Rfam assigns this 106-nucleotide sequence from Plutella xylostella to the family "mir-8517 microRNA precursor family". The source organism's lineage runs through Eukaryota, Metazoa, Arthropoda, Endopterygota and Plutella. Pairs were carried over by alignment from the consensus structure, which was predicted with RNAalifold.
[Rfam]
RNA sequence: UUACAGAACGUUUUAACUAAUAAACUGUUUUGUCCCUCUCCGACAAAGAACAAUUUGUUCUUUGACAGAGAGGGACAAAACAGUUUAUUAGUUAAGGGCCCGUACA
Number, nucleotide and partner (000 for none) at each position: 001u000002u104003a103004c102005a000006g100007a000008a000009c000010g000011u097012u096013u095014u094015a093016a092017c091018u090019a089020a088021u087022a086023a085024a084025c083026u082027g081028u080029u069030u068031u067032g066033u065034c064035c000036c000037u000038c000039u000040c000041c000042g000043a000044c000045a000046a000047a000048g000049a059050a058051c057052a056053a000054u000055u000056u052057g051058u050059u049060c000061u000062u000063u000064g034065a033066c032067a031068g030069a029070g000071a000072g000073g000074g000075a000076c000077a000078a000079a000080a028081c027082a026083g025084u024085u023086u022087a021088u020089u019090a018091g017092u016093u015094a014095a013096g012097g011098g000099c000100c006101c000102g004103u003104a002105c000106a000